[Rfam]
The record is a 113-nucleotide sequence from Candidatus Brocadia fulgida, which matches "c-di-GMP-I-GGC riboswitch aptamer" in Rfam. The organism belongs to Candidatus Brocadia, within Bacteria. The family has 40 seed sequences and 1,298 matches in Rfam 15.1.

RNA sequence: CACGAUAAAGGCAAACCCUGAGCGAUCAGGGGACGCAAAGUAACAGGGUCUUCUGUAGGGGCGUAUUGCAAUACGCCCCUGCCUCUGAUAGAAAGACAGCCUUACUGCCGAAG
Numbered sequence: 001c002a003c004g005a006u007a008a009a010g011g012c013a014a015a016c017c018c019u020g021a022g023c024g025a026u027c028a029g030g031g032g033a034c035g036c037a038a039a040g041u042a043a044c045a046g047g048g049u050c051u052u053c054u055g056u057a058g059g060g061g062c063g064u065a066u067u068g069c070a071a072u073a074c075g076c077c078c079c080u081g082c083c084u085c086u087g088a089u090a091g092a093a094a095g096a097c098a099g100c101c102u103u104a105c106u107g108c109c110g111a112a113g
Stems, first nucleotide, its partner, number of pairs: 001113001003110002011036002016031006034099001039106004045102003048097005